[Rfam]
RNA: Eukaryotic large subunit ribosomal RNA, nucleotides 1157 to 1661
Organism: Aplysia californica
RNA sequence: CCCUCCGAAGUUUCCCUCAGGAUAGCUGGCGCUCGAUCGCAGUUUUAUCCGGUAAAGCGAAUGAUUAGAGGUCUUGGGGACGAAACGACCUCAACCUAUUCUCAAACUUUAAAUGGGUAAGAAGUCCGGCUCGCUUGAUUGGAGCCGGGCCCGUUCGAAUGCGUGUGCCAAGUGGGCCACUUUUGGUAAGCAGAACUGGCGCUGUGGGAUGAACCAAACGCCCGGUUAAGGUGCCAAACACUGACGCUCAUGAGACACCAUAAAAGGUGUUGGUUGAUAUAGACAGCAGGACGGUGGCCAUGGAAGUCGGAAUCCGCUAAGGAGUGUGUAACAACUCACCUGCCGAAUCAACCAGCCCUGAAAAUGGAUGGCGCUUAGCGUCGGACCCAUACCGGGCCGUCUCGGCAGUCUUGGAAAGAGCCAAGCCGAGACGAGUAGGAGGGCCGUCGGGGUGAGCGUGGAAGCCUGGGGAGCGAUCCUGGGUGGAGCCGCCCCGGGUGCAGAU
Numbered sequence: 001c002c003c004u005c006c007g008a009a010g011u012u013u014c015c016c017u018c019a020g021g022a023u024a025g026c027u028g029g030c031g032c033u034c035g036a037u038c039g040c041a042g043u044u045u046u047a048u049c050c051g052g053u054a055a056a057g058c059g060a061a062u063g064a065u066u067a068g069a070g071g072u073c074u075u076g077g078g079g080a081c082g083a084a085a086c087g088a089c090c091u092c093a094a095c096c097u098a099u100u101c102u103c104a105a106a107c108u109u110u111a112a113a114u115g116g117g118u119a120a121g122a123a124g125u126c127c128g129g130c131u132c133g134c135u136u137g138a139u140u141g142g143a144g145c146c147g148g149g150c151c152c153g154u155u156c157g158a159a160u161g162c163g164u165g166u167g168c169c170a171a172g173u174g175g176g177c178c179a180c181u182u183u184u185g186g187u188a189a190g191c192a193g194a195a196c197u198g199g200c201g202c203u204g205u206g207g208g209a210u211g212a213a214c215c216a217a218a219c220g221c222c223c224g225g226u227u228a229a230g231g232u233g234c235c236a237a238a239c240a241c242u243g244a245c246g247c248u249c250a251u252g253a254g255a256c257a258c259c260a261u262a263a264a265a266g267g268u269g270u271u272g273g274u275u276g277a278u279a280u281a282g283a284c285a286g287c288a289g290g291a292c293g294g295u296g297g298c299c300a301u302g303g304a305a306g307u308c309g310g311a312a313u314c315c316g317c318u319a320a321g322g323a324g325u326g327u328g329u330a331a332c333a334a335c336u337c338a339c340c341u342g343c344c345g346a347a348u349c350a351a352c353c354a355g356c357c358c359u360g361a362a363a364a365u366g367g368a369u370g371g372c373g374c375u376u377a378g379c380g381u382c383g384g385a386c387c388c389a390u391a392c393c394g395g396g397c398c399g400u401c402u403c404g405g406c407a408g409u410c411u412u413g414g415a416a417a418g419a420g421c422c423a424a425g426c427c428g429a430g431a432c433g434a435g436u437a438g439g440a441g442g443g444c445c446g447u448c449g450g451g452g453u454g455a456g457c458g459u460g461g462a463a464g465c466c467u468g469g470g471g472a473g474c475g476a477u478c479c480u481g482g483g484u485g486g487a488g489c490c491g492c493c494c495c496g497g498g499u500g501c502a503g504a505u
Stems, first nucleotide, its partner, number of pairs: 001443006011024001013022003027170006043122008055110001056108002062104003067099001069097003074094006081087001124150009176200004181195005205216003220397005226391001230387003239384001241383001245380003265359003269356010286343005292316003298310002317321001322337001326335002398433009445500001447497008456489002464484002470479003